[Rfam]
RNA: Bacterial large subunit ribosomal RNA, nucleotides 904 to 1383
RNA sequence: CUCCCCGAAAUGCAUUUAGGUGCAGCGUUGCGUGUUUCUUGCCGGAGGUAGAGCACUGGAUGGCCUAGGGGGCCCACAAGCUUACUGAAGUCAGCCAAACUCCGAAUGCCGGUAAGUGAGAGCGUGGCAGUGAGACUGCGGGGGAUAAGCUUCGUAGUCGAGAGGGAAACAGCCCAGAUCUCCAGCUAAGGCCCCUAAGCGUGUGCUAAGUGGGAAAGGAUGUGGAGUCGCAGAGACAACCAGGAGGUUGGCUUAGAAGCAGCCACCCUUUAAAGAGUGCGUAAUAGCUCACUGGUCAAGUGAUUCCGCGCCGACAAUGUAGCGGGGCUCAAGUACACCGCCGAAGCUGAGGCAUUGACACGUAUAGUCUGGUUUGAAUUCCUGCGGGACUCUUAUUGGAUGUGUUGAUGGGUAGGGGAGCGUCGUACGACGGAGGAAGCUGCCGAGUGAUCGAGUGGUGGACGUCGUGCGAGUGAGAAU
Dot-bracket structure: ((((((....(((((....))))).((((((((..(.((((((((.....(((...(((.((((...((((((......)))).))...)))).)))..)).).....))))))))....)))))))).)...((((((((((......))))))))))....(((......)))...((((.(((...(((......(.((((((...........((..((((((((((.......(((((.(((..(((.........)))..)))(...)(...((......)).).)))))...)))))))))).))....................))))))))))...)))))))(((((((((((....................................)))))))))))....))))))(.((((((((((......((((((((....))).)))))...))))))))))..).....